[Rfam]
RNA sequence: UAGGGGGAGGGAAGUGGCAUGGCUGGUAGUAUGGUAAUAGCAGCCCAUACUUCCAGUCAUGCCACUUUCCUCCCCCUGCA
Numbered sequence: 001u002a003g004g005g006g007g008a009g010g011g012a013a014g015u016g017g018c019a020u021g022g023c024u025g026g027u028a029g030u031a032u033g034g035u036a037a038u039a040g041c042a043g044c045c046c047a048u049a050c051u052u053c054c055a056g057u058c059a060u061g062c063c064a065c066u067u068u069c070c071u072c073c074c075c076c077u078g079c080a
Stems, first nucleotide, its partner, number of pairs: 001078005007072004013066008023056004028051004
Shown here is an 80-nucleotide RNA sequence from Eptesicus fuscus, a member of the family "mir-9186 microRNA precursor family". Taxonomically the source falls in Eptesicus (Eukaryota, Eumetazoa, Dipnotetrapodomorpha, Chiroptera). Pairs were carried over by alignment from the consensus structure, which was predicted with RNAalifold.